[Rfam]
RNA sequence: AAUUUCAGUUGAAAAAGUCAUAAACAUAAAAGAUGUAGAACUCAUGAAGACAUACAACUUUUAUUUUAGUCAUUUCUUCAUCCGACAAAGUGAUAGUAACAUUGUUCACAAAAUUUACAUAUCUCUCGUAGAGUUUUAUAAACUAUAAGAGAGAUAUGUAAAUUUUGUUAACAAUGUUACUAUUACUUUGUCGGAUGAAGAAAUGACCAAAAUAAAAGUUGUAAAUCUUGAUGAGUUAUACAACUUUGUUGCUAAUGACUUUUUCGGUUGAAAUC
Numbered sequence: 001a002a003u004u005u006c007a008g009u010u011g012a013a014a015a016a017g018u019c020a021u022a023a024a025c026a027u028a029a030a031a032g033a034u035g036u037a038g039a040a041c042u043c044a045u046g047a048a049g050a051c052a053u054a055c056a057a058c059u060u061u062u063a064u065u066u067u068a069g070u071c072a073u074u075u076c077u078u079c080a081u082c083c084g085a086c087a088a089a090g091u092g093a094u095a096g097u098a099a100c101a102u103u104g105u106u107c108a109c110a111a112a113a114u115u116u117a118c119a120u121a122u123c124u125c126u127c128g129u130a131g132a133g134u135u136u137u138a139u140a141a142a143c144u145a146u147a148a149g150a151g152a153g154a155u156a157u158g159u160a161a162a163u164u165u166u167g168u169u170a171a172c173a174a175u176g177u178u179a180c181u182a183u184u185a186c187u188u189u190g191u192c193g194g195a196u197g198a199a200g201a202a203a204u205g206a207c208c209a210a211a212a213u214a215a216a217a218g219u220u221g222u223a224a225a226u227c228u229u230g231a232u233g234a235g236u237u238a239u240a241c242a243a244c245u246u247u248g249u250u251g252c253u254a255a256u257g258a259c260u261u262u263u264u265c266g267g268u269u270g271a272a273a274u275c
Stems, first nucleotide, its partner, number of pairs: 014262008023253001026250001030246003034242004039237004044232002047229004053223001055221013069207007077199005083193010094182006101175006108168005114162002117159006132144005
RNA: MIR821 microRNA precursor family